[Rfam]
RNA sequence: GCGCUGGUGUAGCCAGUGGUUACUUCUAAAACUUUCUCUAUCAGAAAUGUUCUUUACCUCUGCAAAGGGGUUGAACACGGGCGCUGUCCAGUGUUUUG
Numbered sequence: 001g002c003g004c005u006g007g008u009g010u011a012g013c014c015a016g017u018g019g020u021u022a023c024u025u026c027u028a029a030a031a032c033u034u035u036c037u038c039u040a041u042c043a044g045a046a047a048u049g050u051u052c053u054u055u056a057c058c059u060c061u062g063c064a065a066a067g068g069g070g071u072u073g074a075a076c077a078c079g080g081g082c083g084c085u086g087u088c089c090a091g092u093g094u095u096u097u098g
Stems, first nucleotide, its partner, number of pairs: 002093006012082002014079001016078003024075003028071001

Background: The family of this 98-nucleotide RNA from Oncorhynchus tshawytscha is "Vault RNA". The source organism's lineage runs through Eukaryota, Metazoa, Actinopterygii, Clupeocephala and Oncorhynchus. Pairs were carried over by alignment from the consensus structure, which is taken from published work.